[Rfam]
The record is a 505-nucleotide RNA sequence from Streptomyces lavendulae, which matches "Saccharopolyspora sRNA 350" in Rfam. A reference for the family is Liu et al. (2013), "Prediction and characterization of small non-coding RNAs related to secondary metabolites in Saccharopolyspora erythraea", PLoS One. Gene Ontology term of the family: regulation of secondary metabolite biosynthetic process.
RNA sequence: CUGUAGUCCCACUCGGCGUCGGCGUCCAGCAGGGCGUUCUCGCCGAACCGGUCGCCGUCGGCGAGGACGGCGACGGCGACCUCGUCGCCGUACUUGCCGACCGAGGUCUGGGCGAUCCGGCCGUGGGCGAUCAGGUGGAUCCGGUCGGCCGGGGUGCCGCGCUGGACGAGGACCUCACCGGGUCCGAAGUCGCGCUGGACGCAGCGGGCGGCGAGCGCGCCGAGCACCUCGACGUCGUCGAAGCCCCGCAGCAGCGCGAGUUCGCCGAGUUCCCGCGGGAUCACGCGGACGGUGGCGCCGUCCUGCACGAACUCGAUGCGCCCGUCACCCACGGUGUAGCUGAGGCGGCGGUUCACCCGGUAGGUGCCGCCCUUGGUUUCGACCCAGGGGAGCGUCCGCAGCAGCCAGCGGGAGGUGAUCUCCUGCAUCUGCGGGGCGGACUUGGUGGUGGUGGCAAGGUUGCGGGCGGCCGCCGUACCCAGGCUGGACUGCCGGGGCGGAGCGG
Numbered sequence: 001c002u003g004u005a006g007u008c009c010c011a012c013u014c015g016g017c018g019u020c021g022g023c024g025u026c027c028a029g030c031a032g033g034g035c036g037u038u039c040u041c042g043c044c045g046a047a048c049c050g051g052u053c054g055c056c057g058u059c060g061g062c063g064a065g066g067a068c069g070g071c072g073a074c075g076g077c078g079a080c081c082u083c084g085u086c087g088c089c090g091u092a093c094u095u096g097c098c099g100a101c102c103g104a105g106g107u108c109u110g111g112g113c114g115a116u117c118c119g120g121c122c123g124u125g126g127g128c129g130a131u132c133a134g135g136u137g138g139a140u141c142c143g144g145u146c147g148g149c150c151g152g153g154g155u156g157c158c159g160c161g162c163u164g165g166a167c168g169a170g171g172a173c174c175u176c177a178c179c180g181g182g183u184c185c186g187a188a189g190u191c192g193c194g195c196u197g198g199a200c201g202c203a204g205c206g207g208g209c210g211g212c213g214a215g216c217g218c219g220c221c222g223a224g225c226a227c228c229u230c231g232a233c234g235u236c237g238u239c240g241a242a243g244c245c246c247c248g249c250a251g252c253a254g255c256g257c258g259a260g261u262u263c264g265c266c267g268a269g270u271u272c273c274c275g276c277g278g279g280a281u282c283a284c285g286c287g288g289a290c291g292g293u294g295g296c297g298c299c300g301u302c303c304u305g306c307a308c309g310a311a312c313u314c315g316a317u318g319c320g321c322c323c324g325u326c327a328c329c330c331a332c333g334g335u336g337u338a339g340c341u342g343a344g345g346c347g348g349c350g351g352u353u354c355a356c357c358c359g360g361u362a363g364g365u366g367c368c369g370c371c372c373u374u375g376g377u378u379u380c381g382a383c384c385c386a387g388g389g390g391a392g393c394g395u396c397c398g399c400a401g402c403a404g405c406c407a408g409c410g411g412g413a414g415g416u417g418a419u420c421u422c423c424u425g426c427a428u429c430u431g432c433g434g435g436g437c438g439g440a441c442u443u444g445g446u447g448g449u450g451g452u453g454g455c456a457a458g459g460u461u462g463c464g465g466g467c468g469g470c471c472g473c474c475g476u477a478c479c480c481a482g483g484c485u486g487g488a489c490u491g492c493c494g495g496g497g498c499g500g501a502g503c504g505g
Base pairs, nucleotide, nucleotide: 002382005379006378008376009375015319019316020315021314022313025310026309029306030305031304032303033302034301035300036299041297042296043295044294045293052223053222054221056219057218058217059103060102061101069097071096072095073094076091077090078089080087111216116211117210121206124203129200131198132197133196134195135193136192137191144185148183149182150181152178155171158168159167160165229289230288234284235283237281238280239279245275248272250271251270252269254265255264256263323336324335325334326333345373347371348370349369350368351367354366355365356364357363385425386424387423388422389421390420391419393417394416395415397412399410401409431470432469434467437464438463440461441459442458443457445455446454471504472503474499475498476497478495479494480491481490482489
By type it is an antisense RNA.